A member of the RNA family "pemK RNA" from Listeria monocytogenes, 70 nucleotides long. Pairs were carried over by alignment from the consensus structure, which is taken from published work. By type it is a cis-regulatory element.
RNA sequence: AUAAUGAUACACACGCACUACUUAUAAAUAAGCGUCUCUCAUAGGAAUGAGGGUGGUGGAAUUCCAGUGA
Numbered sequence: 001a002u003a004a005u006g007a008u009a010c011a012c013a014c015g016c017a018c019u020a021c022u023u024a025u026a027a028a029u030a031a032g033c034g035u036c037u038c039u040c041a042u043a044g045g046a047a048u049g050a051g052g053g054u055g056g057u058g059g060a061a062u063u064c065c066a067g068u069g070a
Stems, first nucleotide, its partner, number of pairs: 012067001013035004036053003040049003054066003